[Rfam]
RNA sequence: CCUGGUGACCGGGCCCCUCUGGCGAAAGUCCUGCGACGCUUUCGCGAUGUCGGCACUGUGG
Numbered sequence: 001c002c003u004g005g006u007g008a009c010c011g012g013g014c015c016c017c018u019c020u021g022g023c024g025a026a027a028g029u030c031c032u033g034c035g036a037c038g039c040u041u042u043c044g045c046g047a048u049g050u051c052g053g054c055a056c057u058g059u060g061g
Stems, first nucleotide, its partner, number of pairs: 006055002009053004022045008
RNA: terC RNA
Organism: Tabrizicola sp. TH137